[Rfam]
RNA: c-di-GMP-I riboswitch aptamer
RNA sequence: CCGAACAUACGGCAAAGCCGCCGAAAGGCGGCGACGCAAAGCUAUGAGUCUACGGCAGAUACUGCUAGGAUCGUCAAGCUGCAAAA
Numbered sequence: 001c002c003g004a005a006c007a008u009a010c011g012g013c014a015a016a017g018c019c020g021c022c023g024a025a026a027g028g029c030g031g032c033g034a035c036g037c038a039a040a041g042c043u044a045u046g047a048g049u050c051u052a053c054g055g056c057a058g059a060u061a062c063u064g065c066u067a068g069g070a071u072c073g074u075c076a077a078g079c080u081g082c083a084a085a086a
Base pairs, nucleotide, nucleotide: 012037013036017032018031019030020029021028022027040080041079042078043077045076046075047074048071049070050069055065056064057063058062